[Rfam]
The record is an 88-nucleotide sequence from Ornithorhynchus anatinus, which matches "mir-1420 microRNA precursor family" in Rfam. The sequence is in the family's curated seed alignment.
RNA sequence: UCUCCCACCCUGCCUACCUAACCCGGCUGCACUCCCUGGAUGUAGAAAGCAGAAAGUGCGACCGGAUUGGGUAAGUUCGGGUGGGGAA
Number, nucleotide and partner (000 for none) at each position: 001u000002c000003u086004c085005c084006c083007a082008c080009c079010c000011u000012g076013c075014c000015u073016a072017c071018c070019u069020a068021a067022c000023c065024c064025g063026g062027c000028u000029g059030c058031a057032c056033u055034c000035c000036c052037u051038g000039g000040a000041u000042g000043u000044a000045g000046a000047a000048a000049g000050c000051a037052g036053a000054a000055a033056g032057u031058g030059c029060g000061a000062c026063c025064g024065g023066a000067u021068u020069g019070g018071g017072u016073a015074a000075g013076u012077u000078c000079g009080g008081g000082u007083g006084g005085g004086g003087a000088a000